[Rfam]
RNA sequence: GAGGUCCCGGUUCACGGGCGGCGCACCCGAGCGCUCCCGACCCGGCGGCC
Dot-bracket structure: ..(((.((((....((((.(.((........))).))))..))))..)))
Numbered sequence: 001g002a003g004g005u006c007c008c009g010g011u012u013c014a015c016g017g018g019c020g021g022c023g024c025a026c027c028c029g030a031g032c033g034c035u036c037c038c039g040a041c042c043c044g045g046c047g048g049c050c
Stems, first nucleotide, its partner, number of pairs: 003050003007045004015039004020034001022033002
The record is a 50-nucleotide RNA from Vallicoccus soli, which matches "L31-Actinobacteria ribosomal protein leader" in Rfam.
By type it is a cis-regulatory leader.
It scores 42 bits against the family's covariance model.
The family's consensus secondary structure is taken from published work.